[Rfam]
RNA sequence: AGCGACAAGGGCAAAGCCAUCGAAAGGUGGCGACGCAAAGUCUCCGGUCUAACGAGCUGCUCGACUCGGGCACUCCACGAUAGCGGGACCGCCGGAA
Numbered sequence: 001a002g003c004g005a006c007a008a009g010g011g012c013a014a015a016g017c018c019a020u021c022g023a024a025a026g027g028u029g030g031c032g033a034c035g036c037a038a039a040g041u042c043u044c045c046g047g048u049c050u051a052a053c054g055a056g057c058u059g060c061u062c063g064a065c066u067c068g069g070g071c072a073c074u075c076c077a078c079g080a081u082a083g084c085g086g087g088a089c090c091g092c093c094g095g096a097a
Stems, first nucleotide, its partner, number of pairs: 003094002011036002016031006034083001040089003044086003047081003
RNA: c-di-GMP-I-GGC riboswitch aptamer